The family of this 117-nucleotide RNA from Pengzhenrongella sicca is "ALIL pseudoknot". The family's RNA type in Rfam is cis-regulatory element.
RNA sequence: CGCGAGUUUCUUCGGGGCGGAACUCGACCGCCAACACAGGAAAUAGUUGCGUUCAUUGACACCAAUCGUGACGAUCUCGGGGUCGAGCCCAUCUGUACCGCGUUGCAGGCGGCCCCG
Numbered sequence: 001c002g003c004g005a006g007u008u009u010c011u012u013c014g015g016g017g018c019g020g021a022a023c024u025c026g027a028c029c030g031c032c033a034a035c036a037c038a039g040g041a042a043a044u045a046g047u048u049g050c051g052u053u054c055a056u057u058g059a060c061a062c063c064a065a066u067c068g069u070g071a072c073g074a075u076c077u078c079g080g081g082g083u084c085g086a087g088c089c090c091a092u093c094u095g096u097a098c099c100g101c102g103u104u105g106c107a108g109g110c111g112g113c114c115c116c117g
Stems, first nucleotide, its partner, number of pairs: 016032005078117005089112002092109006
On this family, see Mazauric et al., J Biol Chem 2008: "Apical loop-internal loop RNA pseudoknots: a new type of stimulator of -1 translational frameshifting in bacteria". The base pairs follow the family's consensus structure, which is taken from published work.